[Rfam]
RNA: Selenocysteine insertion sequence 1
RNA sequence: GUGUCUCUGUGAAGUUCGGUUUUUAAAAGGGUCAUCCAGAAAACCGACACUGAUGUUUCCGACAC
Numbered sequence: 001g002u003g004u005c006u007c008u009g010u011g012a013a014g015u016u017c018g019g020u021u022u023u024u025a026a027a028a029g030g031g032u033c034a035u036c037c038a039g040a041a042a043a044c045c046g047a048c049a050c051u052g053a054u055g056u057u058u059c060c061g062a063c064a065c
Base pairs, nucleotide, nucleotide: 001065002064003063004062005061014050015049016047017046018045019044020043021042022041023040029037030036031035